[Rfam]
RNA: mir-672 microRNA precursor family
Organism: Mus musculus
RNA sequence: CCUUUAGUUUUGAGGUUGGUGUACUGUGUGUGAGUAUACAUAUUUAUCACACACAGUCACUAUCUUCGAAAGUGAGGGUGC
Number, nucleotide and partner (000 for none) at each position: 001c078002c077003u076004u075005u074006a073007g000008u071009u070010u069011u068012g067013a066014g065015g064016u000017u062018g061019g060020u059021g058022u000023a057024c056025u055026g054027u053028g052029u051030g050031u049032g048033a047034g000035u000036a044037u000038a000039c000040a000041u000042a000043u000044u036045u000046a000047u033048c032049a031050c030051a029052c028053a027054c026055a025056g024057u023058c021059a020060c019061u018062a017063u000064c015065u014066u013067c012068g011069a010070a009071a008072g000073u006074g005075a004076g003077g002078g001079u000080g000081c000